Bacillaceae-1 RNA: a 67-nucleotide RNA from Solibacillus sp. R5-41.
RNA sequence: AUAGGGGGAACUCAGGCUAAGAACGCCGCGCCUUGUGGCAACGCCUGAGUGACCAACAUCGUGUUAG
Number, nucleotide and partner (000 for none) at each position: 001a000002u000003a000004g000005g000006g000007g000008g000009a000010a000011c049012u048013c047014a046015g045016g044017c043018u000019a000020a000021g000022a000023a000024c000025g039026c038027c037028g036029c035030g000031c000032c000033u000034u000035g029036u028037g027038g026039c025040a000041a000042c000043g017044c016045c015046u014047g013048a012049g011050u000051g000052a000053c067054c000055a065056a064057c063058a000059u000060c000061g000062u000063g057064u056065u055066a000067g053